Pyrrolysine insertion sequence mtbB: a 100-nucleotide sequence from Desulfosporosinus orientis.
On this family, see Theil Have et al., BMC Bioinformatics 2013: "Effects of using coding potential, sequence conservation and mRNA structure conservation for predicting pyrroly-sine containing genes".
The family's RNA type in Rfam is cis-regulatory element.
NCBI's taxonomy places the organism under Bacteria, Clostridia, Eubacteriales, Desulfitobacteriaceae, Desulfosporosinus orientis.
RNA sequence: UAGAUUGGUCAUGGUGAUCCUUAUGGUAUGGCUAUAACUCAUGAAAUGUCUGCAGGCAUGGGCGGCAUACGUACUGCCGGAGAUCUGGUAGCACGGAUGC
Numbered sequence: 001u002a003g004a005u006u007g008g009u010c011a012u013g014g015u016g017a018u019c020c021u022u023a024u025g026g027u028a029u030g031g032c033u034a035u036a037a038c039u040c041a042u043g044a045a046a047u048g049u050c051u052g053c054a055g056g057c058a059u060g061g062g063c064g065g066c067a068u069a070c071g072u073a074c075u076g077c078c079g080g081a082g083a084u085c086u087g088g089u090a091g092c093a094c095g096g097a098u099g100c
Stems, first nucleotide, its partner, number of pairs: 007038001013032001015030002017027003074091004079086002